[Rfam]
RNA sequence: UACCGAAGUUUUCCUCGGUAGUUAACUGUAGCCGGUUCUACAUUUCGGCAGUUAACUGCCGAGAGAUAU
Numbered sequence: 001u002a003c004c005g006a007a008g009u010u011u012u013c014c015u016c017g018g019u020a021g022u023u024a025a026c027u028g029u030a031g032c033c034g035g036u037u038c039u040a041c042a043u044u045u046c047g048g049c050a051g052u053u054a055a056c057u058g059c060c061g062a063g064a065g066a067u068a069u
Stems, first nucleotide, its partner, number of pairs: 012065001015062015